Shown here is a 111-nucleotide RNA sequence from Streptomyces sp. 150FB, a member of the family "Streptomyces RNA 4115".
It is annotated as a small RNA.
On this family, see Vockenhuber et al., RNA Biol 2011: "Deep sequencing-based identification of small non-coding RNAs in Streptomyces coelicolor".
Identified by deep sequencing of transcriptome at the end of exponential growth phase. Sequencing size consistent with notrthern blot size.
Pairs were carried over by alignment from the consensus structure.
[Rfam]
RNA sequence: GCGUGGGUCGGUCCACUGCGUACUGGAACCAGUGGACUGGGGGACACCGCCGCCCCAUUCCCCGCGGGCGGUGGAUCAGUCCGGGAGGUGUUCGGCGCCUCCCGGACUGAG
Numbered sequence: 001g002c003g004u005g006g007g008u009c010g011g012u013c014c015a016c017u018g019c020g021u022a023c024u025g026g027a028a029c030c031a032g033u034g035g036a037c038u039g040g041g042g043g044a045c046a047c048c049g050c051c052g053c054c055c056c057a058u059u060c061c062c063c064g065c066g067g068g069c070g071g072u073g074g075a076u077c078a079g080u081c082c083g084g085g086a087g088g089u090g091u092u093c094g095g096c097g098c099c100u101c102c103c104g105g106a107c108u109g110a111g
Stems, first nucleotide, its partner, number of pairs: 002109001006077003009039010040045001047074009078108013